[Rfam]
RNA sequence: AGCUUGGAGAGUUUGAUCCUGGCUCAGGAUGAACGCUAGCGGCGUGCCUUAUGCAUGCAAGUCGAACGGUCUUAAGCAAUUAAGAUAGUGGCGAACGGGUGAGUAACGCGUAAGUAACCUACCUCUAAGUGGGGGAUAGCUUCGGGAAACUGAAGGUAAUACCGCAUGUGGUGGGCCGACAUAUGUUGGUUCACUAAAGCCGUAAGGCGCUUGGUGAGGGGCUUGCGUCCGAUUAGCUAGUUGGUGGGGUAAUGGCCUACCAAGGCUUCGAUCGGUAGCUGGUCUGAGAGGAUGAUCAGCCACACUGGGACUGAGACACGGCCCAGACUCCUACGGGAGGCAGCAGCAAGGAAUCUUGGGCAAUGGGCGAAAGCCUGACCCAGCAACGCCGCGUGAGGGAUGAAGGCUUUCGGGUUGUAAACCUCUUUUCAUAGGGAAGAAUAAUGACGGUACCUGUGGAAUAAGCUUCGGCUAACUACGUGCCAGCAGCCGCGGUAAUACGUAGGAAGCAAGCGUUAUCCGGAUUUAUUG
Number, nucleotide and partner (000 for none) at each position: 001a000002g000003c000004u000005u000006g000007g000008a000009g025010a024011g023012u022013u021014u000015g000016a000017u000018c000019c000020u000021g013022g012023c011024u010025c009026a000027g521028g520029a519030u518031g000032a517033a516034c515035g514036c513037u512038a000039g392040c391041g390042g389043c388044g387045u385046g384047c350048c000049u000050u000051a000052u348053g347054c346055a000056u345057g344058c343059a000060a000061g092062u091063c090064g000065a000066a089067c088068g000069g086070u085071c084072u083073u082074a081075a080076g000077c000078a000079a000080u075081u074082a073083a072084g071085a070086u069087a000088g067089u066090g063091g062092c061093g000094a000095a000096c000097g000098g000099g303100u302101g301102a000103g000104u000105a000106a000107c000108g228109c227110g226111u225112a224113a223114g222115u221116a000117a000118c220119c219120u000121a000122c000123c216124u000125c214126u213127a212128a211129g210130u000131g165132g000133g163134g162135g000136a000137u000138a000139g000140c155141u154142u153143c152144g151145g150146g000147a000148a000149a000150c145151u144152g143153a142154a141155g140156g000157u000158a000159a000160u000161a000162c134163c133164g000165c131166a000167u000168g000169u000170g000171g194172u193173g192174g191175g190176c189177c188178g187179a186180c185181a000182u000183a000184u000185g180186u179187u178188g177189g176190u175191u174192c173193a172194c171195u000196a000197a000198a000199g208200c207201c206202g000203u000204a000205a000206g201207g200208c199209g000210c129211u128212u127213g126214g125215u000216g123217a000218g000219g119220g118221g115222c114223u113224u112225g111226c110227g109228u108229c275230c274231g273232a000233u000234u000235a000236g266237c265238u264239a000240g000241u263242u262243g261244g260245u259246g258247g257248g256249g000250u000251a000252a000253u000254g000255g000256c248257c247258u246259a245260c244261c243262a242263a241264g238265g237266c236267u000268u000269c000270g000271a000272u000273c231274g230275g229276u000277a000278g300279c299280u298281g297282g293283u292284c291285u290286g000287a000288g000289a000290g285291g284292a283293u282294g000295a000296u000297c281298a280299g279300c278301c101302a100303c099304a000305c326306u325307g324308g323309g322310a000311c000312u000313g000314a000315g000316a000317c000318a000319c000320g000321g000322c309323c308324c307325a306326g305327a000328c339329u338330c337331c336332u000333a000334c000335g000336g331337g330338a329339g328340g000341c000342a000343g058344c057345a056346g054347c053348a052349a000350g047351g000352a000353a000354u000355c000356u382357u000358g381359g380360g379361c000362a000363a000364u377365g376366g375367g374368c373369g000370a000371a000372a000373g368374c367375c366376u365377g364378a000379c360380c359381c358382a356383g000384c046385a045386a000387c044388g043389c042390c041391g040392c039393g000394u000395g425396a424397g423398g422399g000400a000401u000402g000403a000404a000405g416406g415407c414408u413409u000410u000411c000412g000413g408414g407415u406416u405417g000418u000419a000420a000421a000422c398423c397424u396425c395426u000427u000428u000429u000430c458431a457432u456433a455434g454435g453436g000437a000438a000439g448440a000441a000442u000443a000444a000445u000446g000447a000448c439449g000450g000451u000452a000453c435454c434455u433456g432457u431458g430459g000460a000461a000462u000463a000464a000465g510466c509467u508468u507469c506470g000471g000472c000473u000474a000475a000476c505477u504478a503479c502480g501481u000482g000483c000484c000485a000486g493487c492488a000489g000490c000491c000492g487493c486494g000495g000496u000497a000498a000499u000500a000501c480502g479503u478504a477505g476506g469507a468508a467509g466510c465511a000512a037513g036514c035515g034516u033517u032518a030519u029520c028521c027522g000523g000524a000525u000526u000527u000528a000529u000530u000531g000

This 531-nucleotide part of an RNA from Dehalococcoides mccartyi belongs to the Rfam family "Bacterial small subunit ribosomal RNA". The source organism's lineage runs through Bacteria, Bacillati, Chloroflexota, Dehalococcoidales and Dehalococcoides mccartyi. The sequence is in the family's curated seed alignment.